[Rfam]
RNA: Wolbachia sRNA 46
RNA sequence: GUAACUUUCACCAAAAAAGAUGUCAUUCCAGUGCCCAGACACUGGGAUCCAGAAAACUUAAUUUUGAAUGAGUACAUCAGAUGGUUGUAUAGUCAGAACUGGAUUCCAGUGUCAGCUACUUGCAUAACACCACCUACUAUGCGAAUU
Numbered sequence: 001g002u003a004a005c006u007u008u009c010a011c012c013a014a015a016a017a018a019g020a021u022g023u024c025a026u027u028c029c030a031g032u033g034c035c036c037a038g039a040c041a042c043u044g045g046g047a048u049c050c051a052g053a054a055a056a057c058u059u060a061a062u063u064u065u066g067a068a069u070g071a072g073u074a075c076a077u078c079a080g081a082u083g084g085u086u087g088u089a090u091a092g093u094c095a096g097a098a099c100u101g102g103a104u105u106c107c108a109g110u111g112u113c114a115g116c117u118a119c120u121u122g123c124a125u126a127a128c129a130c131c132a133c134c135u136a137c138u139a140u141g142c143g144a145a146u147u
Stems, first nucleotide, its partner, number of pairs: 012141002015138001021129003025125002028122001030120004035115001038113015